[Rfam]
RNA sequence: GAAUUCCUUCGGGGCAGGGUGCAAUUCCCUACCGGCGGUGAUGAAUAAUGUUCUAAGCCCGUGACCCGUCUGUCCUCGACAGGCGGUGGAUCCUGGUGAGAAACCGGAGCCGACAGUAAAAGUCUGGAUGGGAGAAGGAAGCA
Numbered sequence: 001g002a003a004u005u006c007c008u009u010c011g012g013g014g015c016a017g018g019g020u021g022c023a024a025u026u027c028c029c030u031a032c033c034g035g036c037g038g039u040g041a042u043g044a045a046u047a048a049u050g051u052u053c054u055a056a057g058c059c060c061g062u063g064a065c066c067c068g069u070c071u072g073u074c075c076u077c078g079a080c081a082g083g084c085g086g087u088g089g090a091u092c093c094u095g096g097u098g099a100g101a102a103a104c105c106g107g108a109g110c111c112g113a114c115a116g117u118a119a120a121a122g123u124c125u126g127g128a129u130g131g132g133a134g135a136a137g138g139a140a141g142c143a
Base pairs, nucleotide, nucleotide: 004140005139006138007137008136009135010134017029018028019027031123032122033112034111035062036061037060038059057110058109066086067085091108092107093106095105096104114126115125116124
A member of the RNA family "FMN riboswitch aptamer (RFN element)" from Exobacillus caeni, 143 nucleotides long. The family's consensus secondary structure is taken from published work. Taxonomically the source falls in Exobacillus (Bacteria, Bacillati, Bacillota, Guptibacillaceae).